Description:
The family of this 41-nucleotide sequence is "L31-Actinobacteria ribosomal protein leader". Rfam classes the family as a cis-regulatory leader. A reference for the family is Eckert and Weinberg (2020), "Discovery of 20 novel ribosomal leader candidates in bacteria and archaea", BMC Microbiol.

[Rfam]
RNA sequence: UCGGUUCCGGUUCACGCCCCGCGGGGGCGACCCGGGGCACC
Numbered sequence: 001u002c003g004g005u006u007c008c009g010g011u012u013c014a015c016g017c018c019c020c021g022c023g024g025g026g027g028c029g030a031c032c033c034g035g036g037g038c039a040c041c
Base pairs, nucleotide, nucleotide: 003041004040005039007035008034009033010032015029016028017027018026019025020024
Clan: Ribosomal Protein L31 Leader clan.